Small nucleolar RNA SNORD42: a 67-nucleotide RNA from Conger conger. Gene Ontology terms of the family: nucleolus and RNA processing. It scores 60 bits against the family's covariance model. The source organism's lineage runs through Eukaryota, Euteleostomi, Elopocephalai, Congridae and Conger. By type it is a C/D-box small nucleolar RNA. The family has 7 seed sequences and 848 matches in Rfam 15.1. For this family Rfam cites "RNomics: an experimental approach that identifies 201 candidates for novel, small, non-messenger RNAs in mouse" (Huttenhofer et al., EMBO J, 2001).
RNA sequence: AUGCAAAUGAUGGAAACUUUUUUUGCGUCUGAAAGAAAUGAUGCUUUCAAAGGAACCACUGAUGCAU
Numbered sequence: 001a002u003g004c005a006a007a008u009g010a011u012g013g014a015a016a017c018u019u020u021u022u023u024u025g026c027g028u029c030u031g032a033a034a035g036a037a038a039u040g041a042u043g044c045u046u047u048c049a050a051a052g053g054a055a056c057c058a059c060u061g062a063u064g065c066a067u
Base pairs, nucleotide, nucleotide: 001067002066003065004064005063